Shown here is a 72-nucleotide RNA from Rodentolepis nana, a member of the family "HDV ribozyme from F. prausnitzii". Pairs were carried over by alignment from the consensus structure, which is taken from published work. A reference for the family is Webb et al. (2009), "Widespread occurrence of self-cleaving ribozymes", Science.
[Rfam]
RNA sequence: GGGGUGCGCAAAAGACAUACCUUUACGUGGUGCACCCUGGACAACGUAUAUUCAUACGGCAAAAAAGUCUUU
Numbered sequence: 001g002g003g004g005u006g007c008g009c010a011a012a013a014g015a016c017a018u019a020c021c022u023u024u025a026c027g028u029g030g031u032g033c034a035c036c037c038u039g040g041a042c043a044a045c046g047u048a049u050a051u052u053c054a055u056a057c058g059g060c061a062a063a064a065a066a067g068u069c070u071u072u
Stems, first nucleotide, its partner, number of pairs: 001038007019031003045058005

Taxonomically the source falls in Rodentolepis (Eukaryota, Metazoa, Cestoda, Cyclophyllidea).